Rfam assigns this 105-nucleotide sequence from Populus trichocarpa to the family "MIR1446 microRNA precursor family". It is one of the family's seed sequences.

[Rfam]
RNA sequence: CCAACUUUUUCUGAACUCUCUCCCUCAACUGCUAUUCUAGAGCUUCCUGAGCUAACCCUUGUGUUUCUGUGUAGCAGUCAAGGUGGGAGGCUCAGAAAAUGUUGG
Numbered sequence: 001c002c003a004a005c006u007u008u009u010u011c012u013g014a015a016c017u018c019u020c021u022c023c024c025u026c027a028a029c030u031g032c033u034a035u036u037c038u039a040g041a042g043c044u045u046c047c048u049g050a051g052c053u054a055a056c057c058c059u060u061g062u063g064u065u066u067c068u069g070u071g072u073a074g075c076a077g078u079c080a081a082g083g084u085g086g087g088a089g090g091c092u093c094a095g096a097a098a099a100u101g102u103u104g105g
Stems, first nucleotide, its partner, number of pairs: 001105005009097006016090001018089005023083003028078008037069001040066004
The base pairs follow the family's consensus structure, which was predicted with RNAalifold. A reference for the family is Lu et al. (2008), "Stress-responsive microRNAs in Populus", Plant J.